[Rfam]
RNA: STnc490 Hfq binding RNA
RNA sequence: AACCUCCAGCCUGGCUGGAGGUUUCGUAAAGCUUUCAGUUUUGAGCCAGUUAUAAAACCCCUUUUGAUUUGUUAAAACAGUUUGCGCUCUGGCAACUACAAACGUUCAACAAGAAAUCAAAAG
Number, nucleotide and partner (000 for none) at each position: 001a023002a022003c021004c020005u019006c018007c017008a016009g015010c014011c000012u000013g000014g010015c009016u008017g007018g006019a005020g004021g003022u002023u001024u000025c000026g000027u000028a042029a041030a040031g039032c038033u037034u000035u000036c000037a033038g032039u031040u030041u029042u028043g000044a000045g000046c000047c000048a000049g000050u000051u000052a000053u000054a000055a000056a000057a000058c000059c000060c000061c123062u122063u121064u120065u119066g118067a117068u116069u115070u111071g110072u109073u108074a000075a000076a106077a105078c104079a000080g103081u102082u101083u100084g099085c000086g097087c000088u095089c000090u000091g000092g000093c000094a000095a088096c000097u086098a000099c084100a083101a082102a081103c080104g078105u077106u076107c000108a073109a072110c071111a070112a000113g000114a000115a069116a068117u067118c066119a065120a064121a063122a062123g061